[Rfam]
RNA sequence: GCACUGGUUUAGCUCAGUGGUUACUUCUCUGCACAAAUCUAGUUGAUUUCGAGCUUCACUCCCUCCGUUCAGUCCCUCCACGGGCGCUGUCCAGUGUUUUU
Numbered sequence: 001g002c003a004c005u006g007g008u009u010u011a012g013c014u015c016a017g018u019g020g021u022u023a024c025u026u027c028u029c030u031g032c033a034c035a036a037a038u039c040u041a042g043u044u045g046a047u048u049u050c051g052a053g054c055u056u057c058a059c060u061c062c063c064u065c066c067g068u069u070c071a072g073u074c075c076c077u078c079c080a081c082g083g084g085c086g087c088u089g090u091c092c093a094g095u096g097u098u099u100u101u
Stems, first nucleotide, its partner, number of pairs: 002096006012085004017081004025072002
Notes: Shown here is a 101-nucleotide RNA sequence from Acanthochromis polyacanthus, a member of the family "Vault RNA". By type it is a non-coding RNA gene. The base pairs follow the family's consensus structure, which is taken from published work. The match comes from Rfam's covariance-model search (58 bits).